Source information:
Small nucleolar RNA SNORA42/SNORA80 family: a 137-nucleotide RNA from Molossus molossus. The family's consensus secondary structure was predicted with RNAalifold. Rfam links the family to the GO terms RNA processing and nucleolus. For this family Rfam cites "A computational screen for mammalian pseudouridylation guide H/ACA RNAs" (Schattner et al., RNA, 2006). The members of this family belong to the H/ACA class of snoRNAs that guide the sites of modification of uridines to pseudouridines.
Nucleotides: 137
Stems, first nucleotide, its partner, number of pairs: 001057001003054001015048001017046004022041003025037002072130003076126002083120002088115001091110005
Number, partner (000 for none) and nucleotide at each position: 001057a002000a003054a004000u005000u006000u007000a008000u009000a010000u011000g012000u013000u014000c015048u016000a017046a018045u019044g020043a021000u022041g023040g024039g025037c026036c027000c028000u029000u030000c031000u032000c033000u034000g035000u036026g037025g038000g039024c040023c041022u042000c043020u044019c045018g046017u047000a048015g049000u050000g051000u052000a053000c054003u055000c056000a057001u058000g059000c060000a061000g062000g063000a064000g065000u066000a067000a068000a069000u070000u071000g072130c073129a074128g075000g076126c077125u078000u079000g080000a081000a082000c083120c084119a085000u086000u087000g088115c089000c090000c091110a092109g093108c094107c095106u096000c097000c098000u099000u100000a101000c102000c103000u104000g105000u106095g107094g108093g109092u110091u111000u112000u113000g114000a115088g116000c117000a118000c119084u120083g121000a122000a123000g124000g125077g126076g127000g128074u129073u130072g131000u132000a133000c134000a135000g136000u137000g